[Rfam]
Rfam assigns this 76-nucleotide RNA sequence from Callithrix jacchus to the family "mir-320 microRNA precursor family". Lineage of the source: Eukaryota > Deuterostomia > Boreoeutheria > Callithrix > Callithrix. Pairs were carried over by alignment from the consensus structure, which was predicted with RNAalifold. A search with the family's covariance model found it, with a score of 61 bits.
RNA sequence: AAAGCAACGGGCCUUCUCUUCCCGUUUCUUCCCAAAGUCAGGAAAAGCUGGGUUGAAAGGGCGUUUAAAAAAAAAA
Number, nucleotide and partner (000 for none) at each position: 001a000002a000003a000004g000005c000006a000007a000008c000009g000010g000011g000012c000013c000014u059015u058016c000017u056018c055019u000020u000021c052022c051023c050024g049025u000026u000027u000028c000029u044030u043031c042032c041033c000034a000035a000036a000037g000038u000039c000040a000041g032042g031043a030044a029045a000046a000047g000048c000049u024050g023051g022052g021053u000054u000055g018056a017057a000058a015059g014060g000061g000062c000063g000064u000065u000066u000067a000068a000069a000070a000071a000072a000073a000074a000075a000076a000